[Rfam]
mir-5890 microRNA precursor family: a 77-nucleotide sequence from Haemonchus placei. Gene Ontology terms of the family: RISC complex and miRNA-mediated post-transcriptional gene silencing.

RNA sequence: UUUAUGGGCAGCAUAGGCCUGAAUUGAUGGAGAGCGUUUAAGAUUUUACCCCUUUUCAUUUUUAUGUUGCUUUGGAA
Numbered sequence: 001u002u003u004a005u006g007g008g009c010a011g012c013a014u015a016g017g018c019c020u021g022a023a024u025u026g027a028u029g030g031a032g033a034g035c036g037u038u039u040a041a042g043a044u045u046u047u048a049c050c051c052c053u054u055u056u057c058a059u060u061u062u063u064a065u066g067u068u069g070c071u072u073u074g075g076a077a
Base pairs, nucleotide, nucleotide: 007071008070009069010068011067012066013065014064015063016062017061020058021057022056023055026052029050030049031047032046033045034044035042
Dot-bracket structure: ......(((((((((((..((((..(..(((((((......).)))).)).)..))))..)))))))))))......